[Rfam]
RNA: TPP riboswitch aptamer (THI element)
Organism: Pseudonocardia sp. HH130629-09
RNA sequence: ACGAACCACGGGAGCCCGGGCAGCGGGCUGAGAGGGGACCCGCGACGCGGUCCCGACCGUCGAACCUGAUCCGGGUCAUGCCGGCGCAGGGAGUGAGGUGGAUCCGAUG
Numbered sequence: 001a002c003g004a005a006c007c008a009c010g011g012g013a014g015c016c017c018g019g020g021c022a023g024c025g026g027g028c029u030g031a032g033a034g035g036g037g038a039c040c041c042g043c044g045a046c047g048c049g050g051u052c053c054c055g056a057c058c059g060u061c062g063a064a065c066c067u068g069a070u071c072c073g074g075g076u077c078a079u080g081c082c083g084g085c086g087c088a089g090g091g092a093g094u095g096a097g098g099u100g101g102a103u104c105c106g107a108u109g
Base pairs, nucleotide, nucleotide: 002097005094006093008060009059010058011057014028015027016026017025018024035054036053037052038051039050065090066089067088068087071084072083073082074081